[Rfam]
RNA: malK-I RNA
Nucleotides: 175
Base pairs, nucleotide, nucleotide: 009039010038011037012036013035015033016032017031018030067081068080069079070078073163074162075161076160077159082106083105084104085103086102087101088100089099091098092097109128110127111126112125113124115123116122131157132156133155135153136152137151140149141148142147
Number, partner (000 for none) and nucleotide at each position: 001000c002000u003000g004000a005000c006000u007000g008000c009039g010038u011037g012036c013035g014000c015033g016032g017031c018030u019000c020000u021000c022000c023000a024000u025000g026000a027000c028000u029000c030018a031017g032016c033015c034000c035013c036012g037011u038010a039009c040000a041000g042000c043000a044000u045000u046000a047000a048000c049000a050000a051000g052000g053000a054000g055000g056000a057000a058000u059000a060000u061000c062000a063000a064000u065000u066000u067081c068080c069079c070078u071000g072000a073163g074162a075161c076160u077159c078070a079069g080068g081067g082106u083105g084104c085103g086102g087101c088100a089099g090000u091098g092097u093000g094000g095000a096000g097092a098091c099089c100088u101087g102086u103085c104084g105083u106082a107000a108000u109128g110127c111126g112125g113124g114000a115123g116122g117000c118000g119000a120000u121000g122116c123115c124113c125112c126111c127110g128109c129000g130000a131157g132156g133155c134000g135153g136152u137151c138000a139000g140149g141148g142147c143000g144000g145000g146000g147142g148141c149140c150000c151137g152136g153135c154000a155133g156132c157131c158000g159077g160076a161075g162074u163073c164000g165000g166000c167000a168000g169000u170000a171000u172000g173000g174000c175000a